The record is a 99-nucleotide RNA from Thermopolyspora flexuosa, which matches "Glycine riboswitch aptamer" in Rfam. Gene Ontology term of the family: glycine biosynthetic process. The organism belongs to Thermopolyspora, within Bacteria. For this family Rfam cites "A glycine-dependent riboswitch that uses cooperative binding to control gene expression" (Mandal et al., Science, 2004). This family represents the bacterial glycine riboswitch.
RNA sequence: GGAUUCCGCGCGGGAGAGUGCCCCGGCAGCCGGUCGGGGCCGCCGAAGGAGCAAUCCCCUCCCCGAGAACCUCUCAGGCCAACGAACCGCGCGGAAGUG
Numbered sequence: 001g002g003a004u005u006c007c008g009c010g011c012g013g014g015a016g017a018g019u020g021c022c023c024c025g026g027c028a029g030c031c032g033g034u035c036g037g038g039g040c041c042g043c044c045g046a047a048g049g050a051g052c053a054a055u056c057c058c059c060u061c062c063c064c065g066a067g068a069a070c071c072u073c074u075c076a077g078g079c080c081a082a083c084g085a086a087c088c089g090c091g092c093g094g095a096a097g098u099g
Stems, first nucleotide, its partner, number of pairs: 006094008020040006042079003045075002049073003055066002